[Rfam]
RNA: permuted transfer-messenger RNA
RNA sequence: GGCGAUAAAUUGCGGCGUGCAAUAGGCACAGCGGACCCGGGGGCGGUACCCGGCAGCUCCACCAUAACCCCUGAAAUUCAGGGGAUUUUGACGGGGCUGAACUAGGAUCGACGUGUGUUGAAAGACGCUGUUUUUGCCCGGCAUGAAUAAGCCGUGAAAUGGUUCAAAACUCAUAAGUGCCAACGAUAACGAAGCACUUGCUCUCGCAGCAUAA
Numbered sequence: 001g002g003c004g005a006u007a008a009a010u011u012g013c014g015g016c017g018u019g020c021a022a023u024a025g026g027c028a029c030a031g032c033g034g035a036c037c038c039g040g041g042g043g044c045g046g047u048a049c050c051c052g053g054c055a056g057c058u059c060c061a062c063c064a065u066a067a068c069c070c071c072u073g074a075a076a077u078u079c080a081g082g083g084g085a086u087u088u089u090g091a092c093g094g095g096g097c098u099g100a101a102c103u104a105g106g107a108u109c110g111a112c113g114u115g116u117g118u119u120g121a122a123a124g125a126c127g128c129u130g131u132u133u134u135u136g137c138c139c140g141g142c143a144u145g146a147a148u149a150a151g152c153c154g155u156g157a158a159a160u161g162g163u164u165c166a167a168a169a170c171u172c173a174u175a176a177g178u179g180c181c182a183a184c185g186a187u188a189a190c191g192a193a194g195c196a197c198u199u200g201c202u203c204u205c206g207c208a209g210c211a212u213a214a
Stems, first nucleotide, its partner, number of pairs: 001138005015128004027117003031114003037053005054099007139154004